[Rfam]
RNA sequence: GGGACCGGCCGCGACUGGCGUUGAGGUGGAGCACCACCUGGGAGCGGCCACGACCUGACCUCCGAUGCGAGCCGAUCGCCUGGGCCGCGGUG
Numbered sequence: 001g002g003g004a005c006c007g008g009c010c011g012c013g014a015c016u017g018g019c020g021u022u023g024a025g026g027u028g029g030a031g032c033a034c035c036a037c038c039u040g041g042g043a044g045c046g047g048c049c050a051c052g053a054c055c056u057g058a059c060c061u062c063c064g065a066u067g068c069g070a071g072c073c074g075a076u077c078g079c080c081u082g083g084g085c086c087g088c089g090g091u092g
Stems, first nucleotide, its partner, number of pairs: 007049006015041002017080004026037004071085003

A member of the RNA family "ZMP/ZTP riboswitch aptamer (pfl RNA motif)" from Pseudactinotalea sp. HY158, 92 nucleotides long.
NCBI's taxonomy places the organism under Bacteria, Actinomycetes, Micrococcales, Cellulomonadaceae, Pseudactinotalea.